Shown here is a 120-nucleotide RNA from Pardalotus punctatus, a member of the family "Small nucleolar RNA SNORA64/SNORA10 family".
Lineage of the source: Eukaryota > Dipnotetrapodomorpha > Coelurosauria > Neognathae > Pardalotus.
About the family: This family belongs to the H/ACA class of small nucleolar RNAs (snoRNAs) which act as guides in the the modification of uridines to pseudouridines. This family includes the human snoRNAs U64 and ACA10 and mouse MBI-29.
The family is grouped with related families in Rfam's "SNORA64 clan".
The family's RNA type in Rfam is H/ACA-box small nucleolar RNA.
The match comes from Rfam's covariance-model search (36 bits).
The family's consensus secondary structure is taken from published work.
Gene Ontology terms of the family: nucleolus and RNA processing.

Nucleotides: 120
Stems, first nucleotide, its partner, number of pairs: 003059006011052001013051003019043002022040005068110004078103003082097005
Number, partner (000 for none) and nucleotide at each position: 001000u002000g003059u004058c005057u006056u007055u008054c009000a010000g011052c012000c013051c014050u015049g016000c017000u018000g019043a020042c021000u022040c023039a024038g025037u026036u027000u028000a029000u030000u031000c032000a033000c034000u035000c036026a037025a038024u039023u040022g041000u042020g043019u044000u045000a046000u047000u048000c049015c050014a051013g052011g053000a054008g055007a056006a057005a058004g059003a060000g061000u062000a063000a064000g065000g066000u067000u068110u069109c070108c071107u072000c073000a074000a075000u076000a077000a078103u079102g080101a081000g082097c083096u084095g085094c086093u087000u088000u089000a090000g091000c092000a093086a094085g095084c096083a097082g098000a099000g100000c101080u102079c103078a104000c105000u106000u107071a108070g109069g110068g111000u112000u113000u114000u115000g116000u117000a118000g119000a120000c